[Rfam]
The family of this 142-nucleotide RNA sequence from Oncorhynchus mykiss is "Small nucleolar RNA SNORA79". Rfam's curators write: ACA65 (SNORA79) is a member of the H/ACA class of snoRNAs that guide the sites of modification of uridines to pseudouridines. The organism belongs to Oncorhynchus, within Eukaryota.

RNA sequence: UGACGCCUGUUCCUCUCGCUGCUCUGAGAUGUGGCAGCUGGGAUUUUAGGGCGUCAGAGUCAAGCAGGGUCUAUUUCACCCUGUGUUCAUGAGGUAGCAGGGCUGCCGUUGUCUACACUGGAUUUUGCGAGACCCCACAAGU
Numbered sequence: 001u002g003a004c005g006c007c008u009g010u011u012c013c014u015c016u017c018g019c020u021g022c023u024c025u026g027a028g029a030u031g032u033g034g035c036a037g038c039u040g041g042g043a044u045u046u047u048a049g050g051g052c053g054u055c056a057g058a059g060u061c062a063a064g065c066a067g068g069g070u071c072u073a074u075u076u077c078a079c080c081c082u083g084u085g086u087u088c089a090u091g092a093g094g095u096a097g098c099a100g101g102g103c104u105g106c107c108g109u110u111g112u113c114u115a116c117a118c119u120g121g122a123u124u125u126u127g128c129g130a131g132a133c134c135c136c137a138c139a140a141g142u
Stems, first nucleotide, its partner, number of pairs: 001056008014043005020036004068134005080121002083118004089112001093107004